[Rfam]
RNA: Small nucleolar RNA SNORD87
Organism: Upupa epops
RNA sequence: GCUGGCAUAAUGAUGAUACCUUUUGCCGUUUACCCAUCUGACUGGUUUCUGAUGUGUACCUUUUGAAUCUGAAAUGCCAGU
Numbered sequence: 001g002c003u004g005g006c007a008u009a010a011u012g013a014u015g016a017u018a019c020c021u022u023u024u025g026c027c028g029u030u031u032a033c034c035c036a037u038c039u040g041a042c043u044g045g046u047u048u049c050u051g052a053u054g055u056g057u058a059c060c061u062u063u064u065g066a067a068u069c070u071g072a073a074a075u076g077c078c079a080g081u
Stems, first nucleotide, its partner, number of pairs: 001081007